Shown here is a 290-nucleotide sequence from Synechococcus sp. CBW1002, a member of the family "5' ureB small RNA". The base pairs follow the family's consensus structure, which was predicted with mfold. On this family, see Wen et al., J Bacteriol 2013: "Helicobacter pylori 5'ureB-sRNA, a cis-encoded antisense small RNA, negatively regulates ureAB expression by transcription termination". A search with the family's covariance model found it, with a score of 144 bits.
[Rfam]
RNA sequence: CGGUCUCGAUCUGCUGCGGGCAGAUGAAGUGGAUGUGGGUGUCGAUCGCGCCCGCGGUCAGGAUGUGCCCCUCGCCGGCGAUCGCUUCCGUGCCCGGGCCGAUCACGAUGUCGACGCCAUCGCUGAUGUCGGGGUUGCCCGCCUUGCCGAUCGCCACGAUCCGGCCAUCGCGCAGGCCGAUGUCGGCCUUGACGAUCCCCCACCAGUCGAGGAUGAGGGCAUUGGUGAUCACCGUGUCCACAGCCCCGGCGGCGCGGGUGGUCUGGGCCUGGCCCAUGCCGUCGCGGAUG
Numbered sequence: 001c002g003g004u005c006u007c008g009a010u011c012u013g014c015u016g017c018g019g020g021c022a023g024a025u026g027a028a029g030u031g032g033a034u035g036u037g038g039g040u041g042u043c044g045a046u047c048g049c050g051c052c053c054g055c056g057g058u059c060a061g062g063a064u065g066u067g068c069c070c071c072u073c074g075c076c077g078g079c080g081a082u083c084g085c086u087u088c089c090g091u092g093c094c095c096g097g098g099c100c101g102a103u104c105a106c107g108a109u110g111u112c113g114a115c116g117c118c119a120u121c122g123c124u125g126a127u128g129u130c131g132g133g134g135u136u137g138c139c140c141g142c143c144u145u146g147c148c149g150a151u152c153g154c155c156a157c158g159a160u161c162c163g164g165c166c167a168u169c170g171c172g173c174a175g176g177c178c179g180a181u182g183u184c185g186g187c188c189u190u191g192a193c194g195a196u197c198c199c200c201c202a203c204c205a206g207u208c209g210a211g212g213a214u215g216a217g218g219g220c221a222u223u224g225g226u227g228a229u230c231a232c233c234g235u236g237u238c239c240a241c242a243g244c245c246c247c248g249g250c251g252g253c254g255c256g257g258g259u260g261g262u263c264u265g266g267g268c269c270u271g272g273c274c275c276a277u278g279c280c281g282u283c284g285c286g287g288a289u290g
Stems, first nucleotide, its partner, number of pairs: 001290002005286001007284003012158002016154002018076002022072002031052002034050002038047003057069001059067001077148002081144001084142002090138003094134002097130003104125002106122004110117002164273004170268002173265004177260001186220005200209001223257001225255001230248001234246001236244001